[Rfam]
Nucleotides: 139
Base pairs, nucleotide, nucleotide: 003063004062005061006060007059008058014055015054016050017049018048022042023041024040025039026038074132077129078128079127094109096107097106098105
Number, partner (000 for none) and nucleotide at each position: 001000c002000a003063c004062u005061u006060c007059u008058c009000a010000a011000u012000g013000a014055g015054c016050u017049c018048c019000u020000u021000g022042c023041u024040g025039c026038c027000g028000a029000c030000a031000a032000a033000u034000c035000c036000g037000u038026g039025g040024c041023a042022g043000c044000c045000u046000a047000u048018g049017g050016a051000u052000u053000c054015g055014c056000a057000c058008g059007a060006g061005a062004a063003g064000a065000a066000u067000a068000u069000u070000a071000a072000c073000u074132g075000u076000u077129c078128a079127g080000u081000a082000c083000u084000g085000g086000c087000a088000a089000a090000c091000u092000c093000a094109c095000a096107g097106u098105g099000u100000g101000g102000c103000u104000c105098c106097a107096u108000c109094g110000a111000u112000u113000g114000u115000g116000a117000u118000u119000a120000g121000c122000c123000a124000u125000c126000a127079c128078u129077g130000u131000u132074c133000a134000a135000c136000a137000a138000g139000u